[Rfam]
RNA sequence: AGCCCCCGCGAGUGGCUGGACUGACACCGGUACCUGACACGGCCGGUGCAG
Numbered sequence: 001a002g003c004c005c006c007c008g009c010g011a012g013u014g015g016c017u018g019g020a021c022u023g024a025c026a027c028c029g030g031u032a033c034c035u036g037a038c039a040c041g042g043c044c045g046g047u048g049c050a051g
Stems, first nucleotide, its partner, number of pairs: 001017004006012001021051003025048007